[Rfam]
RNA sequence: CGGGUGGUUCCGCAAAAGUCAGCCCGUGGAAUUCAGCGCGGCGCUCGGCCUGGGGCUGCUGCGGGUCGGGAUCCCUCGGACCCACCUGCGGCGUCGCACUGGGCCUCGCCGCGUGCACUUUCCAUGGGCAGAGCGCUACGAUCGGUUUCUCGGCGGCGAUUAGCCCCGCUGCUUCGCGUGGCACGGCCUUCGGGUCGUGCCUCGGGCGGCGGUGGUGAGCUGCUGGGGGACCGAGGAACGGCCGUUCGCUUCGAGGCUGCUCGGCCUCGCGGAGGAGUUCGACUGGCGGGGACUGGGCAACCGUGCCCGCCGACCGCUCUUCUGUGUUGGAUCGGGCUCGCCGGGCGAGCAUGGGGUCAGUGGCGAGUCUGUCGGCCUACCACCCGACCCGUCUUGAAACACGG
Numbered sequence: 001c002g003g004g005u006g007g008u009u010c011c012g013c014a015a016a017a018g019u020c021a022g023c024c025c026g027u028g029g030a031a032u033u034c035a036g037c038g039c040g041g042c043g044c045u046c047g048g049c050c051u052g053g054g055g056c057u058g059c060u061g062c063g064g065g066u067c068g069g070g071a072u073c074c075c076u077c078g079g080a081c082c083c084a085c086c087u088g089c090g091g092c093g094u095c096g097c098a099c100u101g102g103g104c105c106u107c108g109c110c111g112c113g114u115g116c117a118c119u120u121u122c123c124a125u126g127g128g129c130a131g132a133g134c135g136c137u138a139c140g141a142u143c144g145g146u147u148u149c150u151c152g153g154c155g156g157c158g159a160u161u162a163g164c165c166c167c168g169c170u171g172c173u174u175c176g177c178g179u180g181g182c183a184c185g186g187c188c189u190u191c192g193g194g195u196c197g198u199g200c201c202u203c204g205g206g207c208g209g210c211g212g213u214g215g216u217g218a219g220c221u222g223c224u225g226g227g228g229g230a231c232c233g234a235g236g237a238a239c240g241g242c243c244g245u246u247c248g249c250u251u252c253g254a255g256g257c258u259g260c261u262c263g264g265c266c267u268c269g270c271g272g273a274g275g276a277g278u279u280c281g282a283c284u285g286g287c288g289g290g291g292a293c294u295g296g297g298c299a300a301c302c303g304u305g306c307c308c309g310c311c312g313a314c315c316g317c318u319c320u321u322c323u324g325u326g327u328u329g330g331a332u333c334g335g336g337c338u339c340g341c342c343g344g345g346c347g348a349g350c351a352u353g354g355g356g357u358c359a360g361u362g363g364c365g366a367g368u369c370u371g372u373c374g375g376c377c378u379a380c381c382a383c384c385c386g387a388c389c390c391g392u393c394u395u396g397a398a399a400c401a402c403g404g
Base pairs, nucleotide, nucleotide: 001386002385003384004383005382006381007380008379010375011374012373020101021100022099025096026095106366107365108364109363110362111361112360389404390403391402392401
Dot-bracket structure: ((((((((.(((.......(((..((....................................................................))..)))....(((((((.......................................................................................................................................................................................................................................................)))))))......)))...))))))))..((((........))))
The record is a 404-nucleotide part of an RNA from Biomphalaria glabrata, which matches "Eukaryotic large subunit ribosomal RNA" in Rfam. On this family, see Yusupov et al., Science 2001: "Crystal structure of the ribosome at 5.5 A resolution". A search with the family's covariance model found it, with a score of 3111 bits.